[Rfam]
RNA sequence: AGAGAGAAUGGAGAUAAGACAGGGAUGAGGUCGAGCAUGGUAUGUGGCUAUCAACAAUUAUAUCCACGUGGCGGACAGGUAUUGGCAAUCGAGAUGGAGCUAGAAAAAUGUCGAGUCGUGUUGAUGCCACGUUCCAUGCACUGCCUCUUCCCUGGCUUUCCCUUUUGCUCUUGCG
Numbered sequence: 001a002g003a004g005a006g007a008a009u010g011g012a013g014a015u016a017a018g019a020c021a022g023g024g025a026u027g028a029g030g031u032c033g034a035g036c037a038u039g040g041u042a043u044g045u046g047g048c049u050a051u052c053a054a055c056a057a058u059u060a061u062a063u064c065c066a067c068g069u070g071g072c073g074g075a076c077a078g079g080u081a082u083u084g085g086c087a088a089u090c091g092a093g094a095u096g097g098a099g100c101u102a103g104a105a106a107a108a109u110g111u112c113g114a115g116u117c118g119u120g121u122u123g124a125u126g127c128c129a130c131g132u133u134c135c136a137u138g139c140a141c142u143g144c145c146u147c148u149u150c151c152c153u154g155g156c157u158u159u160c161c162c163u164u165u166u167g168c169u170c171u172u173g174c175g
Base pairs, nucleotide, nucleotide: 016158017157018156020154021153022152023151024150025149028146029145030144031143033141035139036138037137038136039135040134045129046128047127048126